[Rfam]
RNA sequence: UGCCAGCAGCAGUGCAGAAGUAAGGGUGUUAUGGUAUGGUAUUGCCACCCUUACUUCUGCGCUGCUGCUGUCUGCA
Numbered sequence: 001u002g003c004c005a006g007c008a009g010c011a012g013u014g015c016a017g018a019a020g021u022a023a024g025g026g027u028g029u030u031a032u033g034g035u036a037u038g039g040u041a042u043u044g045c046c047a048c049c050c051u052u053a054c055u056u057c058u059g060c061g062c063u064g065c066u067g068c069u070g071u072c073u074g075c076a
Stems, first nucleotide, its partner, number of pairs: 001076003006071002008066008017056001019055008